[Rfam]
RNA sequence: CGACAACUGUUCCUCCUGCUGCUUUAAGCCACUAGCAUGCUGGGAUUUUAGGUUGUCGUAGAGGAAACGUGGUCUACUUCACCCAGUGUACAGAAGGUAGCAGGGCUGCCCCUCUGAACUCUGGUUUUUGCGGCACCUGACACAA
Numbered sequence: 001c002g003a004c005a006a007c008u009g010u011u012c013c014u015c016c017u018g019c020u021g022c023u024u025u026a027a028g029c030c031a032c033u034a035g036c037a038u039g040c041u042g043g044g045a046u047u048u049u050a051g052g053u054u055g056u057c058g059u060a061g062a063g064g065a066a067a068c069g070u071g072g073u074c075u076a077c078u079u080c081a082c083c084c085a086g087u088g089u090a091c092a093g094a095a096g097g098u099a100g101c102a103g104g105g106c107u108g109c110c111c112c113u114c115u116g117a118a119c120u121c122u123g124g125u126u127u128u129u130g131c132g133g134c135a136c137c138u139g140a141c142a143c144a145a
Base pairs, nucleotide, nucleotide: 001058002057003056004055005054006053007052008051014045015044016043017042018041020037021036022035023034071137072136073135075133083124084123085122086121088119089118091116092115096110097109098108099107
Shown here is a 145-nucleotide sequence from Denticeps clupeoides, a member of the family "Small nucleolar RNA SNORA79".
ACA65 (SNORA79) is a member of the H/ACA class of snoRNAs that guide the sites of modification of uridines to pseudouridines.
It is annotated as an H/ACA-box small nucleolar RNA.
Pairs were carried over by alignment from the consensus structure, which was predicted with RNAalifold.
The literature on the family includes a 2006 paper in RNA by Schattner et al., "A computational screen for mammalian pseudouridylation guide H/ACA RNAs".
Gene Ontology terms of the family: RNA processing and nucleolus.